RNA sequence: UUGUGCUUUCAGGCUCUUUACAGUGCUGCCUUGUUGCAUUCCUGUCAAGCUGCGGUGUAAAGAGCUAGGAAAGAGCAG
Number, nucleotide and partner (000 for none) at each position: 001u000002u000003g000004u000005g000006c000007u000008u000009u000010c000011a000012g000013g000014c064015u063016c062017u061018u000019u059020a058021c057022a056023g000024u054025g053026c052027u000028g050029c000030c049031u048032u047033g046034u000035u000036g000037c000038a000039u000040u000041c000042c000043u000044g000045u000046c033047a032048a031049g030050c028051u000052g026053c025054g024055g000056u022057g021058u020059a019060a000061a017062g016063a015064g014065c000066u000067a000068g000069g000070a000071a000072a000073g000074a000075g000076c000077a000078g000
mir-103/107 microRNA precursor family: a 78-nucleotide sequence from Pelecanus crispus. Rfam's curators write: This family consists of the mammalian microRNA (miRNA) precursors mir-103 and mir107. Animal miRNAs are transcribed as ~70nt precursors and subsequently processed by the Dicer enzyme to give a ~22nt product. For this family Rfam cites "microRNAs: tiny regulators with great potential" (Ambros, Cell, 2001). The organism belongs to Pelecanus, within Eukaryota. Pairs were carried over by alignment from the consensus structure, which was predicted with RNAalifold. Gene Ontology terms of the family: RISC complex and miRNA-mediated post-transcriptional gene silencing.